[Rfam]
RNA sequence: GGCACGGGAACGGAAGAGGACCGGCCCGCACUCCCUGCCGGGAGGCGGGCCGGUCCUCUGCGUCGCGGUGCU
Numbered sequence: 001g002g003c004a005c006g007g008g009a010a011c012g013g014a015a016g017a018g019g020a021c022c023g024g025c026c027c028g029c030a031c032u033c034c035c036u037g038c039c040g041g042g043a044g045g046c047g048g049g050c051c052g053g054u055c056c057u058c059u060g061c062g063u064c065g066c067g068g069u070g071c072u
Stems, first nucleotide, its partner, number of pairs: 001072005007066001008064001015059015031044005
RNA: Epstein-Barr virus stable intronic sequence RNA 2